[Rfam]
A member of the RNA family "Fluoride riboswitch aptamer (crcB RNA motif)" from Clostridium disporicum, 59 nucleotides long. Its family is annotated with positive regulation of gene expression and response to fluoride in the Gene Ontology. Rfam 15.1 lists 2,293 matches to the family in 1,982 species. Taxonomically the source falls in Clostridium (Bacteria, Bacillota, Eubacteriales, Clostridiaceae).
RNA sequence: AAUAAAUAAGGCGAUGGAGUUCGCCAUAAUCGCGUAAAGCUAAUGACUCCUACUCUUUU
Dot-bracket structure: .........[[[[..((((((]]]]......((.....))....)))))).........